[Rfam]
RNA sequence: AAAAGUUGAAUGCAUCGAGCUAACUGUGAUAACUCUGUAGGCAUUACUUCGAACAAGUGAAUUUAUCGAAUCUAAAUGAAAGCCCUUCUACGAGUCCUAAGCCUUGUCAUUAUCAACGUCGUCGUGAUUAUUAUCACGCCGUGCGGGGCUACGCUCGGAGGAAGAAAGGCUUAAAAAUCAAGCCUGAAUUCAGAAGAACCCCCGCACCGAAAGGUCCGGGGGUUUUUUUUUGGCAGGGCUGACAGGCUAUCAACGACAGAGGAACAGAAGAUGAACAGUAGAAUAAAAUGCUGUUGUUCCCAGCGAGAG
Numbered sequence: 001a002a003a004a005g006u007u008g009a010a011u012g013c014a015u016c017g018a019g020c021u022a023a024c025u026g027u028g029a030u031a032a033c034u035c036u037g038u039a040g041g042c043a044u045u046a047c048u049u050c051g052a053a054c055a056a057g058u059g060a061a062u063u064u065a066u067c068g069a070a071u072c073u074a075a076a077u078g079a080a081a082g083c084c085c086u087u088c089u090a091c092g093a094g095u096c097c098u099a100a101g102c103c104u105u106g107u108c109a110u111u112a113u114c115a116a117c118g119u120c121g122u123c124g125u126g127a128u129u130a131u132u133a134u135c136a137c138g139c140c141g142u143g144c145g146g147g148g149c150u151a152c153g154c155u156c157g158g159a160g161g162a163a164g165a166a167a168g169g170c171u172u173a174a175a176a177a178u179c180a181a182g183c184c185u186g187a188a189u190u191c192a193g194a195a196g197a198a199c200c201c202c203c204g205c206a207c208c209g210a211a212a213g214g215u216c217c218g219g220g221g222g223u224u225u226u227u228u229u230u231u232g233g234c235a236g237g238g239c240u241g242a243c244a245g246g247c248u249a250u251c252a253a254c255g256a257c258a259g260a261g262g263a264a265c266a267g268a269a270g271a272u273g274a275a276c277a278g279u280a281g282a283a284u285a286a287a288a289u290g291c292u293g294u295u296g297u298u299c300c301c302a303g304c305g306a307g308a309g
Base pairs, nucleotide, nucleotide: 005033006032007031008030010027011026012024038074039073040072041071044065046063048061049060050059084262085261086260089255092251093250096246097245098244101239102238103237104236105235106234108118110116120141121140123138124137126135127134128133142159144157145156146155147154161191162190163189168185169184171182172181193228194227195226196225197224198223199222200221201220202219203218204217206215207214208213263295264294265293266292267291269289271284272283